Shown here is a 330-nucleotide sequence from a Mycoplasmatota bacterium, a member of the family "Bacterial RNase P class B".

[Rfam]
RNA sequence: GCAUACGGGUAAUCGAGCAGUUUUUACUGUUAGGAAAGUCCAUGCUAGCACAAACUGAGAUGUUUGUAGUGUUUAUGCUAAGGGAAAAAAUAACCUUAGGCACGAAAGUGACGGCUGGUAAGUUACCUAAGUUUAGAUAUGGUAACACCUAUAAAAGUGCCACAGUGACGAUGCUACACGAAAGUGUAGAGUGGAACGGGUAAACCCCAUAAGCUAGAAACCCAAAUUAUGGUAGGGGCACUCUUUGAAGAGAAUUCAAUCUAUCAAGGAGACGUAUUUCGUAGAUAAAUGAUUACCGCUUUUUAAAAGUACAGAACAUGGCUUAUAGUA
Numbered sequence: 001g002c003a004u005a006c007g008g009g010u011a012a013u014c015g016a017g018c019a020g021u022u023u024u025u026a027c028u029g030u031u032a033g034g035a036a037a038g039u040c041c042a043u044g045c046u047a048g049c050a051c052a053a054a055c056u057g058a059g060a061u062g063u064u065u066g067u068a069g070u071g072u073u074u075a076u077g078c079u080a081a082g083g084g085a086a087a088a089a090a091u092a093a094c095c096u097u098a099g100g101c102a103c104g105a106a107a108g109u110g111a112c113g114g115c116u117g118g119u120a121a122g123u124u125a126c127c128u129a130a131g132u133u134u135a136g137a138u139a140u141g142g143u144a145a146c147a148c149c150u151a152u153a154a155a156a157g158u159g160c161c162a163c164a165g166u167g168a169c170g171a172u173g174c175u176a177c178a179c180g181a182a183a184g185u186g187u188a189g190a191g192u193g194g195a196a197c198g199g200g201u202a203a204a205c206c207c208c209a210u211a212a213g214c215u216a217g218a219a220a221c222c223c224a225a226a227u228u229a230u231g232g233u234a235g236g237g238g239c240a241c242u243c244u245u246u247g248a249a250g251a252g253a254a255u256u257c258a259a260u261c262u263a264u265c266a267a268g269g270a271g272a273c274g275u276a277u278u279u280c281g282u283a284g285a286u287a288a289a290u291g292a293u294u295a296c297c298g299c300u301u302u303u304u305a306a307a308a309g310u311a312c313a314g315a316a317c318a319u320g321g322c323u324u325a326u327a328g329u330a
Base pairs, nucleotide, nucleotide: 004330005329006328007326008297009296010295011294012293013292014291016031017030018029019028020027021026036324037323038322040321041320042319043318044317045217046216047215048214049213050067051066052065053064054063055062073212074211075210076209077208078099079098080097081096082095083094100112101110102109103108113207114206116151117150118149124144125143126142127141131138132137157205158204159201160200161199172190174189175188176187177186178185179184221237222236223235241271242270243269244268245267246266247265272282273281274280299309300308301307302306
It is annotated as a ribozyme. Pairs were carried over by alignment from the consensus structure, which is taken from published work. The match comes from Rfam's covariance-model search (283 bits). Its Rfam clan is "RNaseP clan". The source organism's lineage runs through Bacteria, Bacillati and Mycoplasmatota.